RNA: Small nucleolar RNA Z102/R77
RNA sequence: GAACGAGAUGAUGAGGAAUAUGUUUCCCUUUUUGUUUGAUUGCAGAUAUGAAGGCAUCAAUCAUGUACUAGCUCUAGCUGAUCUUUC
Numbered sequence: 001g002a003a004c005g006a007g008a009u010g011a012u013g014a015g016g017a018a019u020a021u022g023u024u025u026c027c028c029u030u031u032u033u034g035u036u037u038g039a040u041u042g043c044a045g046a047u048a049u050g051a052a053g054g055c056a057u058c059a060a061u062c063a064u065g066u067a068c069u070a071g072c073u074c075u076a077g078c079u080g081a082u083c084u085u086u087c
Stems, first nucleotide, its partner, number of pairs: 002086002005083001038058001041056003